[Rfam]
RNA sequence: CGACCCGGGUGCUGUUUGGCCUCGGUCCGCUCGGCUAUCGGCCCUGGCGCACCUUCCCCGGCGCCAGGUCCGACGGGCGGGCGGGGACCUGACCGCACCCGACAGGGAAC
Numbered sequence: 001c002g003a004c005c006c007g008g009g010u011g012c013u014g015u016u017u018g019g020c021c022u023c024g025g026u027c028c029g030c031u032c033g034g035c036u037a038u039c040g041g042c043c044c045u046g047g048c049g050c051a052c053c054u055u056c057c058c059c060g061g062c063g064c065c066a067g068g069u070c071c072g073a074c075g076g077g078c079g080g081g082c083g084g085g086g087a088c089c090u091g092a093c094c095g096c097a098c099c100c101g102a103c104a105g106g107g108a109a110c
Stems, first nucleotide, its partner, number of pairs: 006101007018089002021086003025082008038073004043068008
Shown here is a 110-nucleotide RNA from Kutzneria viridogrisea, a member of the family "mraW RNA". It scores 60 bits against the family's covariance model. Rfam classes the family as a cis-regulatory element. The family has 45 seed sequences and 851 matches in Rfam 15.1.